[Rfam]
RNA: mir-320 microRNA precursor family
Organism: Otolemur garnettii
RNA sequence: CAGAUUCUUGGCCUUCUUUUCCCGGUUCUUCCCAGAGUUGGGAAAAGCUGGGUUGAGAGGGUGAAAAAGGAUGAGG
Numbered sequence: 001c002a003g004a005u006u007c008u009u010g011g012c013c014u015u016c017u018u019u020u021c022c023c024g025g026u027u028c029u030u031c032c033c034a035g036a037g038u039u040g041g042g043a044a045a046a047g048c049u050g051g052g053u054u055g056a057g058a059g060g061g062u063g064a065a066a067a068a069g070g071a072u073g074a075g076g
Stems, first nucleotide, its partner, number of pairs: 014059005021052005029044006